[Rfam]
The record is a 117-nucleotide RNA from Nakamurella alba, which matches "SAM (S-adenosyl methionine) riboswitch aptamer" in Rfam. Clan: SAM clan. Its family is annotated with regulation of gene expression and S-adenosylmethionine metabolic process in the Gene Ontology.

RNA sequence: GGUCAUGAGUGCCAGUGACAAGCCCCGGCUCGCUGGCCGGCAACCCUCCACACGCGGUGGGGUGCCCCGGGUGAUUGACCUGGCGGAGCCCGGAUCCGGGUUCCGCAAGCGCGGGUC
Numbered sequence: 001g002g003u004c005a006u007g008a009g010u011g012c013c014a015g016u017g018a019c020a021a022g023c024c025c026c027g028g029c030u031c032g033c034u035g036g037c038c039g040g041c042a043a044c045c046c047u048c049c050a051c052a053c054g055c056g057g058u059g060g061g062g063u064g065c066c067c068c069g070g071g072u073g074a075u076u077g078a079c080c081u082g083g084c085g086g087a088g089c090c091c092g093g094a095u096c097c098g099g100g101u102u103c104c105g106c107a108a109g110c111g112c113g114g115g116u117c
Stems, first nucleotide, its partner, number of pairs: 001080004009038001011037006021030002039066003044062003048057002083106010